The record is a 56-nucleotide sequence from Pontibaca methylaminivorans, which matches "terC RNA" in Rfam. Rfam classes the family as a cis-regulatory element. The match comes from Rfam's covariance-model search (54 bits). The base pairs follow the family's consensus structure, which is taken from published work.

RNA sequence: GGUAUGGGCCGGGCCCCUCUGGCGACCGAGACAGGUCGUGAUGUCGGACCGAAAUC
Numbered sequence: 001g002g003u004a005u006g007g008g009c010c011g012g013g014c015c016c017c018u019c020u021g022g023c024g025a026c027c028g029a030g031a032c033a034g035g036u037c038g039u040g041a042u043g044u045c046g047g048a049c050c051g052a053a054a055u056c
Stems, first nucleotide, its partner, number of pairs: 006050002009047004022039006